[Rfam]
RNA sequence: CAGCCAGCCCGGGCCCCUCUGGCAGCCACUCCAGGCUGCGAUGUCGGACUGGCGGA
Numbered sequence: 001c002a003g004c005c006a007g008c009c010c011g012g013g014c015c016c017c018u019c020u021g022g023c024a025g026c027c028a029c030u031c032c033a034g035g036c037u038g039c040g041a042u043g044u045c046g047g048a049c050u051g052g053c054g055g056a
Stems, first nucleotide, its partner, number of pairs: 006050002009047004022039006

A member of the RNA family "terC RNA" from Aurantimonas sp. Leaf443, 56 nucleotides long. It scores 50 bits against the family's covariance model. The family's RNA type in Rfam is cis-regulatory element.